[Rfam]
RNA sequence: GAGAUCAUACUUCACAGAAUCAUUUCUGUAGUAUGUAUUUCUUCGCUGUUAGCGAAAAUGCGACGGAGCGCAGCCGCGAUGAUGUGGCAGGGCGUCAUCUCCAGAGCGGGAAGAAGUGUGUCAUCCUCACUCCUACAGUGUGGGUGUCAUACUUGAUGACUGCGUGGAGAACCUUGAAUUAGGUUUUCCGGAAGGAGUUGACGCGUGCUGAGCGGU
Numbered sequence: 001g002a003g004a005u006c007a008u009a010c011u012u013c014a015c016a017g018a019a020u021c022a023u024u025u026c027u028g029u030a031g032u033a034u035g036u037a038u039u040u041c042u043u044c045g046c047u048g049u050u051a052g053c054g055a056a057a058a059u060g061c062g063a064c065g066g067a068g069c070g071c072a073g074c075c076g077c078g079a080u081g082a083u084g085u086g087g088c089a090g091g092g093c094g095u096c097a098u099c100u101c102c103a104g105a106g107c108g109g110g111a112a113g114a115a116g117u118g119u120g121u122c123a124u125c126c127u128c129a130c131u132c133c134u135a136c137a138g139u140g141u142g143g144g145u146g147u148c149a150u151a152c153u154u155g156a157u158g159a160c161u162g163c164g165u166g167g168a169g170a171a172c173c174u175u176g177a178a179u180u181a182g183g184u185u186u187u188c189c190g191g192a193a194g195g196a197g198u199u200g201a202c203g204c205g206u207g208c209u210g211a212g213c214g215g216u
Stems, first nucleotide, its partner, number of pairs: 001041005006035006015028005045053003073216005092204006099197004106163003114154007126142001128140003168187005174182002